RNA sequence: CCAGCGAUAAGCCGAAAAGCUGUAAACAGAGUAGGCA
Numbered sequence: 001c002c003a004g005c006g007a008u009a010a011g012c013c014g015a016a017a018a019g020c021u022g023u024a025a026a027c028a029g030a031g032u033a034g035g036c037a
Stems, first nucleotide, its partner, number of pairs: 002022004011036003
DUF805b RNA: a 37-nucleotide RNA sequence from Kordia antarctica. Lineage of the source: Bacteria > Flavobacteriia > Flavobacteriales > Flavobacteriaceae > Kordia. Pairs were carried over by alignment from the consensus structure, which is taken from published work. It is annotated as a cis-regulatory element.